[Rfam]
RNA: Small nucleolar RNA SNORA41
RNA sequence: UUCCAUAGCUACUGGUCUGCAGCUGUUCUUAUAUAACAGUUGUGGCAUUCCUCUGUGCGAAAGAAACCGUUAACACAGCUAAACACCUUUCUUAGCAAAACAGAAAGUGACAGAAGAAAAAAAAAGA
Numbered sequence: 001u002u003c004c005a006u007a008g009c010u011a012c013u014g015g016u017c018u019g020c021a022g023c024u025g026u027u028c029u030u031a032u033a034u035a036a037c038a039g040u041u042g043u044g045g046c047a048u049u050c051c052u053c054u055g056u057g058c059g060a061a062a063g064a065a066a067c068c069g070u071u072a073a074c075a076c077a078g079c080u081a082a083a084c085a086c087c088u089u090u091c092u093u094a095g096c097a098a099a100a101c102a103g104a105a106a107g108u109g110a111c112a113g114a115a116g117a118a119a120a121a122a123a124a125a126g127a
Stems, first nucleotide, its partner, number of pairs: 004057003017045009076116001086109001087107006
Dot-bracket structure: ...(((..........(((((((((...........))))))))).........)))..................(.........(((((((.........)))))).)......)...........